[Rfam]
The family of this 60-nucleotide RNA from Escherichia coli is "Pseudomonas sRNA P26". This small RNA (sRNA) was computationally identified in the genome of the opportunistic pathogen Pseudomonas aeruginosa and its expression verified by northern blot analysis. P26 is conserved across many Gammaproteobacteria species and appears to be consistently located between the DNA directed RNA polymerase (beta subunit) and 50S ribosomal protein L7/L12 genes. By type it is a non-coding RNA gene. NCBI's taxonomy places the organism under Bacteria, Pseudomonadota, Gammaproteobacteria, Enterobacterales, Escherichia.
RNA sequence: AUAACGCCGGUUGCAGCCCGAGAAAUCAGGCGUGGCUGGUGACUUUUUAGUCACCAGCUU
Numbered sequence: 001a002u003a004a005c006g007c008c009g010g011u012u013g014c015a016g017c018c019c020g021a022g023a024a025a026u027c028a029g030g031c032g033u034g035g036c037u038g039g040u041g042a043c044u045u046u047u048u049a050g051u052c053a054c055c056a057g058c059u060u
Base pairs, nucleotide, nucleotide: 016031017030018029022027034059035058036057037056038055039054040053041052042051043050